[Rfam]
This 37-nucleotide RNA sequence from Hallerella succinigenes belongs to the Rfam family "abiF RNA". Actinobacteria, Bacteroidetes, Clostridia, Proteobacteria, one Clostridia phage. The source organism's lineage runs through Bacteria, Fibrobacterota, Fibrobacterales, Fibrobacteraceae and Hallerella.
RNA sequence: CCCUGCACGCCUCUUUGCAAUGCGCAACCAGCGGGGU
Number, nucleotide and partner (000 for none) at each position: 001c036002c035003c034004u033005g032006c031007a000008c024009g023010c022011c000012u000013c000014u000015u000016u000017g000018c000019a000020a000021u000022g010023c009024g008025c000026a000027a000028c000029c000030a000031g006032c005033g004034g003035g002036g001037u000
The base pairs follow the family's consensus structure, which is taken from published work.